[Rfam]
RNA sequence: CAUUCCGAGGAGCGCUGCGAGACCGCUGUCACCCCCGACACGCCGUCCUAGGCUCGGAAUACGUCAAACCGCGCUCACCCCCU
Numbered sequence: 001c002a003u004u005c006c007g008a009g010g011a012g013c014g015c016u017g018c019g020a021g022a023c024c025g026c027u028g029u030c031a032c033c034c035c036c037g038a039c040a041c042g043c044c045g046u047c048c049u050a051g052g053c054u055c056g057g058a059a060u061a062c063g064u065c066a067a068a069c070c071g072c073g074c075u076c077a078c079c080c081c082c083u
Base pairs, nucleotide, nucleotide: 002060003059004058005057006056007055008054021047022046023045025043026042
RNA: SAH (S-adenosyl-L-homocysteine) riboswitch aptamer